[Rfam]
RNA sequence: UAUUAAUUUAUCUGAUAAAGAACACUCUUAUCGAUAAAAUAACUUGAACCAUUU
Numbered sequence: 001u002a003u004u005a006a007u008u009u010a011u012c013u014g015a016u017a018a019a020g021a022a023c024a025c026u027c028u029u030a031u032c033g034a035u036a037a038a039a040u041a042a043c044u045u046g047a048a049c050c051a052u053u054u
Stems, first nucleotide, its partner, number of pairs: 011034002014032005
Overview: A member of the RNA family "Plastid-atpF group II-D1 intron" from Colocasia esculenta, 54 nucleotides long. The organism belongs to Colocasia, within Eukaryota. It scores 56 bits against the family's covariance model. Rfam links the family to the GO term Group II intron splicing. A reference for the family is Richter et al. (2023), "Retrograde signaling in plants: A critical review focusing on the GUN pathway and beyond", Plant Commun. About the family: Plastid atpF is a non-coding RNA (ncRNA) recognised in plastids. It has been reported in the intron group II-D1 region of ATP synthase (atpF) genes.